[Rfam]
RNA: GcvB RNA
Organism: Erwinia billingiae
RNA sequence: ACUUCCUGAGCCGGAACGAAAAGCAGUUUGAAAUUGGGGCGGAAACGCCGGAUUUUGAAGGGCUUUUGGCUUGUGGUCGUGAUGUUGUGUUUGCAUUUGAUCUGACGCUUUUCAGAUCUGAUAGCCUGGCUAUCUUUUAUUCCUGUAGAUUUACCCUGUCUGUCCAUAGUGAUUAAUAGCACCGCAAAUUGCGGUGCUUUUUUUU
Numbered sequence: 001a002c003u004u005c006c007u008g009a010g011c012c013g014g015a016a017c018g019a020a021a022a023g024c025a026g027u028u029u030g031a032a033a034u035u036g037g038g039g040c041g042g043a044a045a046c047g048c049c050g051g052a053u054u055u056u057g058a059a060g061g062g063c064u065u066u067u068g069g070c071u072u073g074u075g076g077u078c079g080u081g082a083u084g085u086u087g088u089g090u091u092u093g094c095a096u097u098u099g100a101u102c103u104g105a106c107g108c109u110u111u112u113c114a115g116a117u118c119u120g121a122u123a124g125c126c127u128g129g130c131u132a133u134c135u136u137u138u139a140u141u142c143c144u145g146u147a148g149a150u151u152u153a154c155c156c157u158g159u160c161u162g163u164c165c166a167u168a169g170u171g172a173u174u175a176a177u178a179g180c181a182c183c184g185c186a187a188a189u190u191g192c193g194g195u196g197c198u199u200u201u202u203u204u205u
Stems, first nucleotide, its partner, number of pairs: 009071004015067002021065004027059008099118007120134006149177003178198008